[Rfam]
RNA sequence: UUGAAGUUCCAUCUCUUAAUGGAUAAGAUUUUCUCCUAACAUAUAGGAAUUUUUAAAGGAAGAAAACCCAGAAAUACCCAAUAUCCUUUUUGAUAUUGGGUAUUUCUG
Numbered sequence: 001u002u003g004a005a006g007u008u009c010c011a012u013c014u015c016u017u018a019a020u021g022g023a024u025a026a027g028a029u030u031u032u033c034u035c036c037u038a039a040c041a042u043a044u045a046g047g048a049a050u051u052u053u054u055a056a057a058g059g060a061a062g063a064a065a066a067c068c069c070a071g072a073a074a075u076a077c078c079c080a081a082u083a084u085c086c087u088u089u090u091u092g093a094u095a096u097u098g099g100g101u102a103u104u105u106c107u108g
Stems, first nucleotide, its partner, number of pairs: 008023005069108009079098003083094003
RNA: Plastid-psbA-1 3UTR RNA